[Rfam]
RNA sequence: CCAACCGGUCCGCCGAAAUCGGACCCGGGGCCGCUCGCGGCCCCUAGGGGUGAAGCCGAAGUCAGACCGUUCGCGGGGAAGACUGCGGCCGGGCAACCUCUCCAGCCCGAACCCGACAGCUGACCUCGUGGGCGCACACAGAGAGGACUG
Numbered sequence: 001c002c003a004a005c006c007g008g009u010c011c012g013c014c015g016a017a018a019u020c021g022g023a024c025c026c027g028g029g030g031c032c033g034c035u036c037g038c039g040g041c042c043c044c045u046a047g048g049g050g051u052g053a054a055g056c057c058g059a060a061g062u063c064a065g066a067c068c069g070u071u072c073g074c075g076g077g078g079a080a081g082a083c084u085g086c087g088g089c090c091g092g093g094c095a096a097c098c099u100c101u102c103c104a105g106c107c108c109g110a111a112c113c114c115g116a117c118a119g120c121u122g123a124c125c126u127c128g129u130g131g132g133c134g135c136a137c138a139c140a141g142a143g144a145g146g147a148c149u150g
Base pairs, nucleotide, nucleotide: 011134012133013132014131019023026128027127028126029125030124032047048114049113050112056088057087058086091108092107093106094105

Description: The record is a 150-nucleotide RNA from Mycolicibacterium chitae, which matches "c-di-AMP riboswitch aptamer (ydaO/yuaA leader)" in Rfam. Pairs were carried over by alignment from the consensus structure.